This 93-nucleotide sequence belongs to the Rfam family "SAM-I/IV (S-adenosyl methionine) riboswitch aptamer". The literature on the family includes a 2008 paper in RNA by Weinberg et al., "The aptamer core of SAM-IV riboswitches mimics the ligand-binding site of SAM-I riboswitches". The family is grouped with related families in Rfam's "SAM clan".
RNA sequence: GAGGAACAUAAAGAGAAGGUAAAGACCUCGGCAACCUGGAAGACUAUCCAAGGUGCUUGAAGAUGUGGCAGAGAUGCAACUAAGUAGUCAAAA
Numbered sequence: 001g002a003g004g005a006a007c008a009u010a011a012a013g014a015g016a017a018g019g020u021a022a023a024g025a026c027c028u029c030g031g032c033a034a035c036c037u038g039g040a041a042g043a044c045u046a047u048c049c050a051a052g053g054u055g056c057u058u059g060a061a062g063a064u065g066u067g068g069c070a071g072a073g074a075u076g077c078a079a080c081u082a083a084g085u086a087g088u089c090a091a092a093a
Base pairs, nucleotide, nucleotide: 006066007065008064009063015029017028018027019026020025030057031056032055035053036052037051038049039048040047042088068077069076070075
Rfam's curators put it in the seed alignment.